[Rfam]
c-di-AMP riboswitch aptamer (ydaO/yuaA leader): a 149-nucleotide sequence from Georgenia subflava.
Rfam describes the family as follows. This family represents a conserved RNA structure found upstream of the ydaO and yuaA genes in Bacillus subtilis and related genes in other bacteria. The ydaO/yuaA element is thought to act as a genetic 'off' switch for the ydaO and yuaA genes in its native state. It is believed that the element may be triggered during osmotic shock leading to activation of ydaO, a predicted amino acid transporter gene, and members of the yuaA-yubG operon which code for KtrA and KtrB K+ transporters.
RNA sequence: CUCGAACACCUGCGGCAGGGGCGGAGGACCCACGUGUACGGGCCCGGGAGACCGGGUCCUCGGGGUGAAGUGCGGCCAAGGACGGUCGCGCCGGGCGUUCUCCCGUCCGAACCCGACAGCUGACUCCGCAGGCAGCCAGGAGAGGUACG
Numbered sequence: 001c002u003c004g005a006a007c008a009c010c011u012g013c014g015g016c017a018g019g020g021g022c023g024g025a026g027g028a029c030c031c032a033c034g035u036g037u038a039c040g041g042g043c044c045c046g047g048g049a050g051a052c053c054g055g056g057u058c059c060u061c062g063g064g065g066u067g068a069a070g071u072g073c074g075g076c077c078a079a080g081g082a083c084g085g086u087c088g089c090g091c092c093g094g095g096c097g098u099u100c101u102c103c104c105g106u107c108c109g110a111a112c113c114c115g116a117c118a119g120c121u122g123a124c125u126c127c128g129c130a131g132g133c134a135g136c137c138a139g140g141a142g143a144g145g146u147a148c149g
Base pairs, nucleotide, nucleotide: 001020002019003018021129022128023127024126025125026124031062063114064113065112071090072089073088074087075086076085093108094107095106096105